[Rfam]
RNA sequence: CUUGAGAGGUCAGGAGAGAGUUUUCAUCGCGAAAACCGCCGAAGGCGCACGAACACCAUGAGGGCACCCCUCGUGGUGUACUGAACGCUCAGGCAAAAGGACUGGCAACCGUUU
Dot-bracket structure: .....(..(((((......((((.........)))).(((((..(((...(..............................)...))))).))).......)))))..).....

Glycine riboswitch aptamer: a 114-nucleotide sequence from Polaromonas sp. JS666. NCBI's taxonomy places the organism under Bacteria, Pseudomonadota, Betaproteobacteria, Burkholderiales, Polaromonas. The base pairs follow the family's consensus structure. From the family's description: This family represents the bacterial glycine riboswitch.